[Rfam]
RNA sequence: AUAAUCGAGAGUUUGAUCCUGGCUCAGGACGAACGCUGGCGGCGUGCCUAACACAUGCAAGUCGAGCGAUGAACCGACCACAGAAGCCUUCGGGCCGAAGCGGAAGGGAAUUAGCGGCGGACGGGUGAGUAACACGUGAGUAACCUGCCUUUGACACGGGGAUAGCCAAGGGAAACCCUGAUUAAUACCCGAUAACAUUAUCAAUUCGCAUGAACAGAUAAUCAAAGCGAAGCGGUCAAAGAUGGACUCGCGUCUGAUUAAUUAGUUGGUGAGAUAACAGCCCACCAAGAUGACGAUCAGUAGCCGGCCUGAGAGGGUGAACGGCCACAUUGGAACUGAGAAACGGUCCAAACUCCUACGGGAGGCAGCAGUGGGGAAUAUUGCACAAUGGGGGGAACCCUGAUGCAGCGACGCCGCGUGAGCGAAGAAGGAAUUCGUUUCGUAAAGCUCUGUCCUAUGGGAAGACAAUGACAGUACCAUAGGAGGAAGCCCCGGCUAACUACGUGCCAGCAGCCGCGGUAAUACGUAGGGGGCGAGCGUUGUCCGGAAUCACUG
Numbered sequence: 001a002u003a004a005u006c007g008a009g010a011g012u013u014u015g016a017u018c019c020u021g022g023c024u025c026a027g028g029a030c031g032a033a034c035g036c037u038g039g040c041g042g043c044g045u046g047c048c049u050a051a052c053a054c055a056u057g058c059a060a061g062u063c064g065a066g067c068g069a070u071g072a073a074c075c076g077a078c079c080a081c082a083g084a085a086g087c088c089u090u091c092g093g094g095c096c097g098a099a100g101c102g103g104a105a106g107g108g109a110a111u112u113a114g115c116g117g118c119g120g121a122c123g124g125g126u127g128a129g130u131a132a133c134a135c136g137u138g139a140g141u142a143a144c145c146u147g148c149c150u151u152u153g154a155c156a157c158g159g160g161g162a163u164a165g166c167c168a169a170g171g172g173a174a175a176c177c178c179u180g181a182u183u184a185a186u187a188c189c190c191g192a193u194a195a196c197a198u199u200a201u202c203a204a205u206u207c208g209c210a211u212g213a214a215c216a217g218a219u220a221a222u223c224a225a226a227g228c229g230a231a232g233c234g235g236u237c238a239a240a241g242a243u244g245g246a247c248u249c250g251c252g253u254c255u256g257a258u259u260a261a262u263u264a265g266u267u268g269g270u271g272a273g274a275u276a277a278c279a280g281c282c283c284a285c286c287a288a289g290a291u292g293a294c295g296a297u298c299a300g301u302a303g304c305c306g307g308c309c310u311g312a313g314a315g316g317g318u319g320a321a322c323g324g325c326c327a328c329a330u331u332g333g334a335a336c337u338g339a340g341a342a343a344c345g346g347u348c349c350a351a352a353c354u355c356c357u358a359c360g361g362g363a364g365g366c367a368g369c370a371g372u373g374g375g376g377a378a379u380a381u382u383g384c385a386c387a388a389u390g391g392g393g394g395g396a397a398c399c400c401u402g403a404u405g406c407a408g409c410g411a412c413g414c415c416g417c418g419u420g421a422g423c424g425a426a427g428a429a430g431g432a433a434u435u436c437g438u439u440u441c442g443u444a445a446a447g448c449u450c451u452g453u454c455c456u457a458u459g460g461g462a463a464g465a466c467a468a469u470g471a472c473a474g475u476a477c478c479a480u481a482g483g484a485g486g487a488a489g490c491c492c493c494g495g496c497u498a499a500c501u502a503c504g505u506g507c508c509a510g511c512a513g514c515c516g517c518g519g520u521a522a523u524a525c526g527u528a529g530g531g532g533g534c535g536a537g538c539g540u541u542g543u544c545c546g547g548a549a550u551c552a553c554u555g
Stems, first nucleotide, its partner, number of pairs: 009025005027545004032541006039417006045410002047375001052373003056370003061118003066115002069111002125328003134253008144245002149241007157191004165182001167180002170177002197222006205214003227233002254300003261291003266288006273281001303325004307318004330351005353364004381407001383406003389402005420450004430441004454486001455482006464472001489534005500529005510517002